[Rfam]
mir-29 microRNA precursor family: a 70-nucleotide RNA from Myripristis murdjan. Rfam describes the family as follows. This family represents the microRNA (miRNA) precursors mir-29. Rfam links the family to the GO terms RISC complex and gene silencing by miRNA. Rfam 15.1 lists 3,328 matches to the family in 787 species. For this family Rfam cites "microRNAs: tiny regulators with great potential" (Ambros, Cell, 2001). It scores 59 bits against the family's covariance model.

RNA sequence: GUGUCACUGAUUUCCUCUGGUGUUCAGAGUGGAUUUGGAGUUUUCUAGCACCAUUUGAAAUCGGUUGCAU
Numbered sequence: 001g002u003g004u005c006a007c008u009g010a011u012u013u014c015c016u017c018u019g020g021u022g023u024u025c026a027g028a029g030u031g032g033a034u035u036u037g038g039a040g041u042u043u044u045c046u047a048g049c050a051c052c053a054u055u056u057g058a059a060a061u062c063g064g065u066u067g068c069a070u
Base pairs, nucleotide, nucleotide: 001070002069003068004067007064008063009062010061011060012059013058014057018053019052020051021050022049026046027045028044
Dot-bracket structure: ((((..((((((((...(((((...(((...............)))..)))))...))))))))..))))